This 185-nucleotide RNA sequence from Erwinia sorbitola belongs to the Rfam family "6S / SsrS RNA".
[Rfam]
RNA sequence: AAUUCUCUGAGAUGUUUGCAAGCGGGCCCGUCCCCUGAGCCGAUAAUUAAUACCAAACAGAGUGUGACGCUCUGUAACCUGUGCGCAAGCUCGGUUCGUCCGAGAAGCCUGAUGGUUGCGACGGCAUGCUCACCUUGAACCAUGGGUUCAAGGGUUACAGCCUGCGGCGGCAUCUCGGAGAACCU
Numbered sequence: 001a002a003u004u005c006u007c008u009g010a011g012a013u014g015u016u017u018g019c020a021a022g023c024g025g026g027c028c029c030g031u032c033c034c035c036u037g038a039g040c041c042g043a044u045a046a047u048u049a050a051u052a053c054c055a056a057a058c059a060g061a062g063u064g065u066g067a068c069g070c071u072c073u074g075u076a077a078c079c080u081g082u083g084c085g086c087a088a089g090c091u092c093g094g095u096u097c098g099u100c101c102g103a104g105a106a107g108c109c110u111g112a113u114g115g116u117u118g119c120g121a122c123g124g125c126a127u128g129c130u131c132a133c134c135u136u137g138a139a140c141c142a143u144g145g146g147u148u149c150a151a152g153g154g155u156u157a158c159a160g161c162c163u164g165c166g167g168c169g170g171c172a173u174c175u176c177g178g179a180g181a182a183c184c185u
Stems, first nucleotide, its partner, number of pairs: 003182013017169003032154003036150006060131003064127003068123002071121001073120007085108002090104005
The source organism's lineage runs through Bacteria, Pseudomonadati, Pseudomonadota, Enterobacterales and Erwinia.
Rfam's curators write: E. coli 6S RNA was the first non coding RNA to be sequenced, but its function was unknown until recently. It consists of 184 nucleotides that fold into an extended hairpin structure with a large single-stranded internal bulge. The 6S RNA specifically associates with RNA polymerase holoenzyme containing the sigma70 specificity factor.
The family's consensus secondary structure is taken from published work.